[Rfam]
RNA sequence: UACUAUGGGCAGGGGUGCUGGAAUUGGCCGGCUGAGAUUUAGACCCAAAAGUCUAAGACCCUUUUAACCUGAUCUGGAUAAUGCCAGCGUAGGUAAGCAGUUUACUCUUUUA
Numbered sequence: 001u002a003c004u005a006u007g008g009g010c011a012g013g014g015g016u017g018c019u020g021g022a023a024u025u026g027g028c029c030g031g032c033u034g035a036g037a038u039u040u041a042g043a044c045c046c047a048a049a050a051g052u053c054u055a056a057g058a059c060c061c062u063u064u065u066a067a068c069c070u071g072a073u074c075u076g077g078a079u080a081a082u083g084c085c086a087g088c089g090u091a092g093g094u095a096a097g098c099a100g101u102u103u104a105c106u107c108u109u110u111u112a
Stems, first nucleotide, its partner, number of pairs: 006100001008098001011062004016056001017032005040055004068093004074087004
The family of this 112-nucleotide RNA from Desulfosporosinus sp. HMP52 is "TPP riboswitch aptamer (THI element)". It scores 68 bits against the family's covariance model. The family's consensus secondary structure is taken from published work. The organism belongs to Desulfosporosinus, within Bacteria.